A member of the RNA family "c-di-GMP-I riboswitch aptamer" from Rubrivivax gelatinosus, 87 nucleotides long. The source organism's lineage runs through Bacteria, Pseudomonadota, Sphaerotilaceae, Rubrivivax and Rubrivivax gelatinosus. It scores 78 bits against the family's covariance model.
RNA sequence: GCGGCCGAUGGGCAAACCCGGCGAAAGCCGGGGACGCAAAGCUUCCGGGCUACGGGCGGCAACGCCUACGCCAGCGGGGUUGCCGCC
Numbered sequence: 001g002c003g004g005c006c007g008a009u010g011g012g013c014a015a016a017c018c019c020g021g022c023g024a025a026a027g028c029c030g031g032g033g034a035c036g037c038a039a040a041g042c043u044u045c046c047g048g049g050c051u052a053c054g055g056g057c058g059g060c061a062a063c064g065c066c067u068a069c070g071c072c073a074g075c076g077g078g079g080u081u082g083c084c085g086c087c
Base pairs, nucleotide, nucleotide: 012037013036017032018031019030020029021028022027040081041080042079043078045077046076047075048072049071050070055066056065057064058063